[Rfam]
About this RNA
A member of the RNA family "HNH endonuclease-associated RNA and ORF (HEARO) RNA" from Actinomadura darangshiensis, 266 nucleotides long. NCBI's taxonomy places the organism under Bacteria, Actinomycetota, Actinomycetes, Thermomonosporaceae, Actinomadura. The literature on the family includes a 2009 paper in Nature by Weinberg et al., "Exceptional structured noncoding RNAs revealed by bacterial metagenome analysis". The family's RNA type in Rfam is non-coding RNA gene.
RNA sequence: GUCAAACGCUCCCCGGCCUGAAGGCCGGGGCUUGCCUCGCUAGCCGAGGUAGGCCUUGUUUGACCAGCCCGAGCCAGCACGCAUGGGAGGUGAACUAGUUGGCUACGUUCCGUGCAGGUGAGCGGACCCACCAGGCCGUGCUUCUCCAGCGGCCUGCUCUGGAAUCCGGUUCAGCAGACAUGCUUGGGGGCAGGCGCGAAACGGGGACCGGACACCGCCCUUGCGGGGUGGUACCCGGUGCGGAACAUGGGCGAGGAGAGCCCGCC
Numbered sequence: 001g002u003c004a005a006a007c008g009c010u011c012c013c014c015g016g017c018c019u020g021a022a023g024g025c026c027g028g029g030g031c032u033u034g035c036c037u038c039g040c041u042a043g044c045c046g047a048g049g050u051a052g053g054c055c056u057u058g059u060u061u062g063a064c065c066a067g068c069c070c071g072a073g074c075c076a077g078c079a080c081g082c083a084u085g086g087g088a089g090g091u092g093a094a095c096u097a098g099u100u101g102g103c104u105a106c107g108u109u110c111c112g113u114g115c116a117g118g119u120g121a122g123c124g125g126a127c128c129c130a131c132c133a134g135g136c137c138g139u140g141c142u143u144c145u146c147c148a149g150c151g152g153c154c155u156g157c158u159c160u161g162g163a164a165u166c167c168g169g170u171u172c173a174g175c176a177g178a179c180a181u182g183c184u185u186g187g188g189g190g191c192a193g194g195c196g197c198g199a200a201a202c203g204g205g206g207a208c209c210g211g212a213c214a215c216c217g218c219c220c221u222u223g224c225g226g227g228g229u230g231g232u233a234c235c236c237g238g239u240g241c242g243g244a245a246c247a248u249g250g251g252c253g254a255g256g257a258g259a260g261c262c263c264g265c266c
Base pairs, nucleotide, nucleotide: 001064002063003062004061005060006059007058008057010030011029014027015026017024018023031053032052033051034050035049036048037047038046039045067252068251069250070249071248072104073103074102075101076100077099078098107246108245109244110243111242112241113240114239115238117236128162129161132156133155134154135153136152137151138150139149140262142260143259144258145257146256147255165205166204167203168202170200171199172198174197175196181192182191183190184189